[Rfam]
RNA sequence: GCGCAGUUGCCGGGCCCCUCUGGCGGAUGGCCCUUGAGCCUUUCGUGAUGUCGGAGCUGCUCC
Numbered sequence: 001g002c003g004c005a006g007u008u009g010c011c012g013g014g015c016c017c018c019u020c021u022g023g024c025g026g027a028u029g030g031c032c033c034u035u036g037a038g039c040c041u042u043u044c045g046u047g048a049u050g051u052c053g054g055a056g057c058u059g060c061u062c063c
Stems, first nucleotide, its partner, number of pairs: 006057002010054004023046005029040002